[Rfam]
RNA: abiF RNA
RNA sequence: CCCCCUAAGCCUCUUAAUAAUGCUCAAAUCUGGGGGC
Numbered sequence: 001c002c003c004c005c006u007a008a009g010c011c012u013c014u015u016a017a018u019a020a021u022g023c024u025c026a027a028a029u030c031u032g033g034g035g036g037c
Base pairs, nucleotide, nucleotide: 001036002035003034004033005032008024009023010022